A member of the RNA family "MIR1120/MIR1122 microRNA precursor family" from Triticum aestivum, 86 nucleotides long. Rfam links the family to the GO terms miRNA-mediated post-transcriptional gene silencing and RISC complex. The base pairs follow the family's consensus structure, which was predicted with RNAalifold. The source organism's lineage runs through Eukaryota, Viridiplantae, Mesangiospermae, Poales and Triticum.
RNA sequence: AUACUCCCUCCGUCCAUAAUAUAAGAGUGUUUUUGACACUAGUGUAGUGUCAAAAACACUCUUAUAUUAUUGGACGGAGGAAGUAU
Numbered sequence: 001a002u003a004c005u006c007c008c009u010c011c012g013u014c015c016a017u018a019a020u021a022u023a024a025g026a027g028u029g030u031u032u033u034u035g036a037c038a039c040u041a042g043u044g045u046a047g048u049g050u051c052a053a054a055a056a057c058a059c060u061c062u063u064a065u066a067u068u069a070u071u072g073g074a075c076g077g078a079g080g081a082a083g084u085a086u
Stems, first nucleotide, its partner, number of pairs: 003084003007080005013074004018068023